[Rfam]
RNA: TPP riboswitch aptamer (THI element)
Organism: Dictyobacter arantiisoli
RNA sequence: AUUUGCUGCUAGGGGUGCCGUUUCGGCUGAGAGGUAGGCAACUACCGACCCUUUGAGAGUUUGACCUGAUCUGGGUAAUGCCAGCGUAGGGAAGUAGCAUCAACAUUCU
Numbered sequence: 001a002u003u004u005g006c007u008g009c010u011a012g013g014g015g016u017g018c019c020g021u022u023u024c025g026g027c028u029g030a031g032a033g034g035u036a037g038g039c040a041a042c043u044a045c046c047g048a049c050c051c052u053u054u055g056a057g058a059g060u061u062u063g064a065c066c067u068g069a070u071c072u073g074g075g076u077a078a079u080g081c082c083a084g085c086g087u088a089g090g091g092a093a094g095u096a097g098c099a100u101c102a103a104c105a106u107u108c109u
Base pairs, nucleotide, nucleotide: 006097007096008095009094010093011052012051013050014049017027018026019025020024034045035044036043037042065090066089067088068087071084072083073082074081